[Rfam]
Nucleotides: 082
Stems, first nucleotide, its partner, number of pairs: 001082008012030005020068004032051001034045004056074005
Number, partner (000 for none) and nucleotide at each position: 001082g002081a003080u004079u005078g006077u007076u008075g009000a010000g011000u012030g013029u014028c015027g016026g017000a018000a019000a020068u021067g022066g023065u024000u025000c026016c027015c028014g029013a030012c031000g032051c033000a034045c035044c036043u037042g038000u039000u040000u041000a042037c043036a044035g045034g046000u047000a048000c049000c050000u051032g052000a053000g054000a055000u056074g057073a058072u059071g060070g061000a062000u063000a064000c065023a066022c067021c068020g069000c070060c071059c072058a073057u074056c075008c076007a077006a078005u079004a080003a081002u082001c